[Rfam]
RNA: Ribosomal protein L10 leader
RNA sequence: GAAUUUCAUACAUUUGUACCGAAGACAGCAGGGGCCCAGCGGCUUAAUUUCCUGCCGAGGGAAUACGAUAGAAUGAGCCAGUGAAAUGGCUAUUGUAUUAUGCCUCCAUGUCUUACGGAUAUGGAGGCUUUUAUUUGCCCGG
Numbered sequence: 001g002a003a004u005u006u007c008a009u010a011c012a013u014u015u016g017u018a019c020c021g022a023a024g025a026c027a028g029c030a031g032g033g034g035c036c037c038a039g040c041g042g043c044u045u046a047a048u049u050u051c052c053u054g055c056c057g058a059g060g061g062a063a064u065a066c067g068a069u070a071g072a073a074u075g076a077g078c079c080a081g082u083g084a085a086a087u088g089g090c091u092a093u094u095g096u097a098u099u100a101u102g103c104c105u106c107c108a109u110g111u112c113u114u115a116c117g118g119a120u121a122u123g124g125a126g127g128c129u130u131u132u133a134u135u136u137g138c139c140c141g142g
Base pairs, nucleotide, nucleotide: 028055029054030053031052032051033050034043035042036041103127104126105125106124107123108122109121110120111119112118